The record is a 132-nucleotide sequence from Atlantibacter hermannii, which matches "RtT RNA" in Rfam. Lineage of the source: Bacteria > Pseudomonadati > Pseudomonadota > Atlantibacter > Atlantibacter hermannii. This family represents a bacterial cis-regulatory element known as RtT RNA. The exact function of RtT is unknown although it is thought that it may be involved in changing the cellular response in relation to amino acid starvation. For this family Rfam cites "A novel RNA product of the tyrT operon of Escherichia coli" (Bosl and Kersten, Nucleic Acids Res, 1991).
Nucleotides: 132
Stems, first nucleotide, its partner, number of pairs: 015123002017120004022115001032095002045090001047088002052062002069083006
Number, partner (000 for none) and nucleotide at each position: 001000g002000c003000a004000u005000u006000c007000c008000g009000g010000c011000g012000c013000c014000u015123g016122u017120g018119a019118g020117g021000a022115u023000u024000u025000g026000a027000a028000c029000c030000u031000c032095c033094g034000g035000g036000g037000g038000c039000a040000g041000g042000a043000g044000g045090u046000u047088c048087g049000g050000g051000u052062c053061g054000a055000g056000c057000g058000c059000a060000g061053c062052g063000a064000g065000a066000c067000a068000a069083c070082g071081u072080u073079g074078c075000g076000c077000a078074g079073c080072a081071a082070c083069g084000g085000c086000c087048c088047g089000c090045a091000g092000g093000g094033c095032g096000a097000g098000c099000c100000g101000c102000g103000c104000a105000g106000c107000g108000g109000c110000g111000a112000g113000u114000c115022a116000u117020c118019c119018u120017c121000u122016a123015u124000c125000a126000c127000c128000g129000a130000c131000c132000a